RNA sequence: AAAUUAGUAAAGGGGAGCCCAUGGCUGAGAGUAGAUUUGAUCUAGACCCUAGAACCUGAAUACGUUAAUGCGUGCGUAGGGAUUACUGUAGGAUUAUAG
Numbered sequence: 001a002a003a004u005u006a007g008u009a010a011a012g013g014g015g016a017g018c019c020c021a022u023g024g025c026u027g028a029g030a031g032u033a034g035a036u037u038u039g040a041u042c043u044a045g046a047c048c049c050u051a052g053a054a055c056c057u058g059a060a061u062a063c064g065u066u067a068a069u070g071c072g073u074g075c076g077u078a079g080g081g082a083u084u085a086c087u088g089u090a091g092g093a094u095u096a097u098a099g
Base pairs, nucleotide, nucleotide: 006087007086008085009084010083011050012049013048014047017025018024019023032044033043034042035041036040055080056079057078058077061074062073063072064071

Notes: TPP riboswitch aptamer (THI element): a 99-nucleotide RNA sequence from Facklamia hominis. Gene Ontology term of the family: thiamine pyrophosphate binding. It scores 65 bits against the family's covariance model. The family's consensus secondary structure is taken from published work. NCBI's taxonomy places the organism under Bacteria, Lactobacillales, Aerococcaceae, Facklamia, Facklamia hominis.